Rfam assigns this 71-nucleotide sequence from Bos taurus to the family "mir-2450 microRNA precursor family". Rfam links the family to the GO terms RISC complex and miRNA-mediated post-transcriptional gene silencing. The family has 4 seed sequences and 76 matches in Rfam 15.1. The family's consensus secondary structure was predicted with RNAalifold.

RNA sequence: AGAGGUGCGUGUGCCUUUUCUGCACACUCUGUAUACACGCGCGCACACGUAGUAGAGGUGCGUGUGCCUUU
Numbered sequence: 001a002g003a004g005g006u007g008c009g010u011g012u013g014c015c016u017u018u019u020c021u022g023c024a025c026a027c028u029c030u031g032u033a034u035a036c037a038c039g040c041g042c043g044c045a046c047a048c049g050u051a052g053u054a055g056a057g058g059u060g061c062g063u064g065u066g067c068c069u070u071u
Base pairs, nucleotide, nucleotide: 002070003069004068005067006066007065008064009063010062011061012060013059014058015057016056017055018054020052021051022050025049031042032041